Shown here is a 56-nucleotide RNA from Hydrogenophaga sp. BPS33, a member of the family "Xanthine riboswitch aptamer (NMT1 RNA)". The match comes from Rfam's covariance-model search (57 bits). Lineage of the source: Bacteria > Pseudomonadati > Pseudomonadota > Betaproteobacteria > Hydrogenophaga. The family's consensus secondary structure is taken from published work. Gene Ontology term of the family: purine nucleobase binding. On this family, see Yu and Breaker, RNA 2020: "A bacterial riboswitch class senses xanthine and uric acid to regulate genes associated with purine oxidation".

RNA sequence: ACCCAGAGUAGAAGCGUUCAGCGCCGCGCCACGCGGGGCAGGAAAUUGCUCUUGAG
Numbered sequence: 001a002c003c004c005a006g007a008g009u010a011g012a013a014g015c016g017u018u019c020a021g022c023g024c025c026g027c028g029c030c031a032c033g034c035g036g037g038g039c040a041g042g043a044a045a046u047u048g049c050u051c052u053u054g055a056g
Base pairs, nucleotide, nucleotide: 005052006051007050008049009048010047015041018043019042021039022038024036025035026034027033